c-di-GMP-I-GGC riboswitch aptamer: a 76-nucleotide RNA from Desulfosporosinus sp. I2.
It scores 65 bits against the family's covariance model.
The source organism's lineage runs through Bacteria, Bacillota, Clostridia, Eubacteriales and Desulfosporosinus.
The base pairs follow the family's consensus structure, which is taken from published work.
Its Rfam clan is "c-di-GMP_I riboswitch clan".

[Rfam]
RNA sequence: AACGAUAAAGGCAAACUUGCCGAAAGGCAGGGACGCAAAGCUAAAGGGCCUGUGAAAUGGCAGCCAGCCACCGAAA
Dot-bracket structure: ..((......((...((((((....))))))..[))...(((...(((((........))).])))))...))...